This 99-nucleotide sequence from Orycteropus afer belongs to the Rfam family "Vault RNA". The base pairs follow the family's consensus structure, which is taken from published work. By type it is a non-coding RNA gene. The organism belongs to Orycteropus afer, within Eukaryota.

Nucleotides: 099
Base pairs, nucleotide, nucleotide: 002094004092005091006090007089013083014082015081018079019078020077021076026073027072
Number, partner (000 for none) and nucleotide at each position: 001000g002094g003000c004092c005091u006090g007089g008000c009000c010000u011000u012000a013083g014082c015081u016000c017000a018079g019078u020077g021076g022000u023000u024000c025000c026073u027072u028000c029000a030000u031000u032000c033000u034000a035000a036000u037000a038000g039000u040000c041000a042000g043000a044000g045000c046000u047000u048000a049000u050000c051000c052000g053000u054000c055000c056000u057000u058000u059000c060000g061000a062000g063000g064000g065000u066000a067000g068000u069000u070000c071000a072027a073026g074000a075000c076021c077020c078019a079018c080000a081015g082014g083013u084000g085000c086000u087000c088000c089007c090006c091005a092004g093000u094002c095000c096000u097000u098000u099000g